[Rfam]
RNA sequence: AUACUUAUGCAUUUUGAAUAAAAAAUAUUCUCGAUUAUUUAAUAUUAGCAAAGGAAAUCAGAACCCAAUACGUUAGGGCUCAAAUUCCUUGAAAAAUCCC
Numbered sequence: 001a002u003a004c005u006u007a008u009g010c011a012u013u014u015u016g017a018a019u020a021a022a023a024a025a026u027a028u029u030c031u032c033g034a035u036u037a038u039u040u041a042a043u044a045u046u047a048g049c050a051a052a053g054g055a056a057a058u059c060a061g062a063a064c065c066c067a068a069u070a071c072g073u074u075a076g077g078g079c080u081c082a083a084a085u086u087c088c089u090u091g092a093a094a095a096a097u098c099c100c
Stems, first nucleotide, its partner, number of pairs: 016030005034058003038054003075090004

Heliobacter pylori small RNA HPnc0580: a 100-nucleotide sequence from Gossypium lobatum. The family's consensus secondary structure was predicted with RNAalifold. For this family Rfam cites "The primary transcriptome of the major human pathogen Helicobacter pylori" (Sharma et al., Nature, 2010). The family has 7 seed sequences and 29 matches in Rfam 15.1. A search with the family's covariance model found it, with a score of 37 bits.